Rfam assigns this 89-nucleotide sequence from Drosophila kikkawai to the family "mir-317 microRNA precursor family". A search with the family's covariance model found it, with a score of 81 bits. Rfam links the family to the GO terms miRNA-mediated post-transcriptional gene silencing and RISC complex. The organism belongs to Sophophora, within Eukaryota. A reference for the family is Stark et al. (2007), "Systematic discovery and characterization of fly microRNAs using 12 Drosophila genomes", Genome Res.
[Rfam]
RNA sequence: UGCAACUGCCAGUGGGAUACACCCUGUGCUCGCUUUGAAAAACCGCAAGCAAGUGAACACAGCUGGUGGUAUCCAGUGGCCGUUUUAGC
Dot-bracket structure: .......((((...(((.((((((((.(.((.......................)).).)))..))).)).)))..)))).........